[Rfam]
RNA sequence: AAGUUUCGCUUCGGGGCAUCCUCCUCCCAGUCCUGAAGCGGAUAAGGGGCCUACACUCCUCCUCCCAAACGUAGGCUCCACACUUGCGACGCCCGCCGGGUCCUCCCCCCGGUGGGCGCCACGC
Number, nucleotide and partner (000 for none) at each position: 001a000002a000003g000004u000005u000006u000007c040008g039009c038010u000011u036012c035013g034014g033015g032016g031017c030018a000019u000020c000021c000022u000023c000024c000025u000026c000027c000028c000029a000030g017031u016032c015033c014034u013035g012036a011037a000038g009039c008040g007041g000042a000043u000044a000045a000046g079047g078048g077049g076050c075051c074052u073053a072054c071055a000056c000057u000058c000059c000060u000061c000062c000063u000064c000065c000066c000067a000068a000069a000070c000071g054072u053073a052074g051075g050076c049077u048078c047079c046080a000081c000082a000083c000084u000085u000086g000087c000088g000089a000090c118091g117092c116093c115094c114095g113096c112097c111098g110099g109100g000101u000102c000103c000104u000105c000106c000107c000108c000109c099110c098111g097112g096113u095114g094115g093116g092117c091118g090119c000120c000121a000122c000123g000124c000
RNA: Alphaproteobacterial ar14